[Rfam]
RNA sequence: GCGUGCGGACAUGAAAACACGGCCCGGUUGGUAGUCCGGGCGCGAGAGUCGCCCUUUGAGCCGAAGUAGCCCGGUUUCGCAAGGAUUCCCGUCAGUAACCUGCCUCCUUGGUUGUCCAUUUUCCGCGUGCCAGCU
Numbered sequence: 001g002c003g004u005g006c007g008g009a010c011a012u013g014a015a016a017a018c019a020c021g022g023c024c025c026g027g028u029u030g031g032u033a034g035u036c037c038g039g040g041c042g043c044g045a046g047a048g049u050c051g052c053c054c055u056u057u058g059a060g061c062c063g064a065a066g067u068a069g070c071c072c073g074g075u076u077u078c079g080c081a082a083g084g085a086u087u088c089c090c091g092u093c094a095g096u097a098a099c100c101u102g103c104c105u106c107c108u109u110g111g112u113u114g115u116c117c118a119u120u121u122u123c124c125g126c127g128u129g130c131c132a133g134c135u
Base pairs, nucleotide, nucleotide: 004127005126006125007124008123009122011120022041023040024039025038026037027036042092043091044090046088047087048086049085050084102112103111104110